[Rfam]
Rfam assigns this 133-nucleotide RNA from Amphimedon queenslandica to the family "U11 spliceosomal RNA". NCBI's taxonomy places the organism under Eukaryota, Opisthokonta, Metazoa, Niphatidae, Amphimedon. It scores 100 bits against the family's covariance model. The family's consensus secondary structure is taken from published work. A reference for the family is Montzka and Steitz (1988), "Additional low-abundance human small nuclear ribonucleoproteins: U11, U12, etc", Proc Natl Acad Sci U S A. By type it is a spliceosomal small nuclear RNA.
RNA sequence: UAAAAGGGCUUUUGUCGUCAGUGGCACAGUGGGAUUCUUAUUAGGGUCUCAUUGCGGAAUCGCUAUCAAGAGAUUUCGGAAGCAUAAUUUUUGUAACCUGGGUAGUCAGACUGUUGCUUGCAGUGACGCCCUC
Number, nucleotide and partner (000 for none) at each position: 001u000002a000003a000004a000005a000006g000007g000008g083009c082010u081011u080012u079013u026014g025015u024016c023017g022018u000019c000020a000021g000022u017023g016024g015025c014026a013027c054028a053029g052030u051031g050032g049033g048034a047035u046036u045037c044038u043039u000040a000041u000042u000043a038044g037045g036046g035047u034048c033049u032050c031051a030052u029053u028054g027055c078056g077057g076058a075059a074060u073061c072062g000063c000064u000065a000066u000067c000068a000069a000070g000071a000072g061073a060074u059075u058076u057077c056078g055079g012080a011081a010082g009083c008084a000085u000086a000087a000088u000089u000090u000091u000092u000093g000094u000095a000096a000097c000098c000099u000100g131101g130102g129103u128104a000105g127106u126107c125108a124109g000110a000111c000112u122113g121114u120115u000116g000117c000118u000119u000120g114121c113122a112123g000124u108125g107126a106127c105128g103129c102130c101131c100132u000133c000